[Rfam]
RNA sequence: AGAUUUGGUCGUAGUGCCGCGACCAAGGUAAUCAAAAAAAAGGCCACUGAGA
Numbered sequence: 001a002g003a004u005u006u007g008g009u010c011g012u013a014g015u016g017c018c019g020c021g022a023c024c025a026a027g028g029u030a031a032u033c034a035a036a037a038a039a040a041a042g043g044c045c046a047c048u049g050a051g052a
Stems, first nucleotide, its partner, number of pairs: 006025006014045001017042001
RNA: 6A RNA